RNA sequence: AUUGUUGGCACAUCAAUCCACAUGUGUUGGGUGGAUUGAGGUGAAAUUUAGUUCAAGUUCCACUUCAAUCCACCUAACCAUAUGUGGAUUGAUGUGAAUCCGACU
Numbered sequence: 001a002u003u004g005u006u007g008g009c010a011c012a013u014c015a016a017u018c019c020a021c022a023u024g025u026g027u028u029g030g031g032u033g034g035a036u037u038g039a040g041g042u043g044a045a046a047u048u049u050a051g052u053u054c055a056a057g058u059u060c061c062a063c064u065u066c067a068a069u070c071c072a073c074c075u076a077a078c079c080a081u082a083u084g085u086g087g088a089u090u091g092a093u094g095u096g097a098a099u100c101c102g103a104c105u
Base pairs, nucleotide, nucleotide: 004104005103006102007101008100009096010095011094013092014091015090016089017088018087019086020085021084022083023082024081025080026079027077028076031073032072033071034070035069036068037067038066039065041063042062043061
This 105-nucleotide sequence from Miscanthus lutarioriparius belongs to the Rfam family "MIR5565 microRNA precursor family". Rfam 15.1 lists 3,346 matches to the family in 5 species. The base pairs follow the family's consensus structure, which was predicted with RNAalifold. The match comes from Rfam's covariance-model search (83 bits).